Shown here is a 57-nucleotide sequence from Alkalibaculum bacchi, a member of the family "Streptococcus sRNA SpF59 (ldcC RNA)". The organism belongs to Alkalibaculum, within Bacteria. For this family Rfam cites "Control of virulence by small RNAs in Streptococcus pneumoniae" (Mann et al., PLoS Pathog, 2012).
RNA sequence: UGACCAUCUCUUUUUUAAAGAGUUUAUAGCCAUACGGACAGCUGGGUCAAAAGCCGG
Number, nucleotide and partner (000 for none) at each position: 001u049002g048003a047004c046005c045006a024007u000008c022009u021010c020011u019012u018013u017014u000015u000016u000017a013018a012019a011020g010021a009022g008023u000024u006025u000026a000027u000028a000029g000030c000031c000032a000033u000034a000035c000036g000037g000038a000039c000040a000041g000042c000043u000044g000045g005046g004047u003048c002049a001050a000051a000052a000053g000054c000055c000056g000057g000